[Rfam]
RNA sequence: ACAGCAACGCCAAACCUGCAGCGAUGCAGGGACGGAAAGCCACGGGUCUCUCCCUCCUCUCGAGACAGCCGGGUUGCCUGAG
Numbered sequence: 001a002c003a004g005c006a007a008c009g010c011c012a013a014a015c016c017u018g019c020a021g022c023g024a025u026g027c028a029g030g031g032a033c034g035g036a037a038a039g040c041c042a043c044g045g046g047u048c049u050c051u052c053c054c055u056c057c058u059c060u061c062g063a064g065a066c067a068g069c070c071g072g073g074u075u076g077c078c079u080g081a082g
Base pairs, nucleotide, nucleotide: 010035011034015030016029017028018027019026020025033068038075039074040073041072043071044070045069046066047065048064049063050062